[Rfam]
RNA sequence: GGAUCAAAUUUGAAGUAGAGUAGAUCAUUAGUAUCAGCUGACCCUUCUAAACUACUCUACUUCGAGUUUGGGCCA
Number, nucleotide and partner (000 for none) at each position: 001g074002g073003a000004u071005c070006a069007a068008a067009u066010u000011u064012g063013a062014a061015g060016u059017a058018g057019a056020g055021u054022a053023g052024a000025u050026c000027a048028u000029u000030a045031g000032u000033a000034u041035c040036a000037g000038c000039u000040g035041a034042c000043c000044c000045u030046u000047c000048u027049a000050a025051a000052c023053u022054a021055c020056u019057c018058u017059a016060c015061u014062u013063c012064g011065a000066g009067u008068u007069u006070g005071g004072g000073c002074c001075a000
Rfam assigns this 75-nucleotide RNA sequence from Haemonchus placei to the family "mir-5928 microRNA precursor family".
The source organism's lineage runs through Eukaryota, Metazoa, Rhabditida, Rhabditina and Haemonchus.
Pairs were carried over by alignment from the consensus structure, which was predicted with RNAalifold.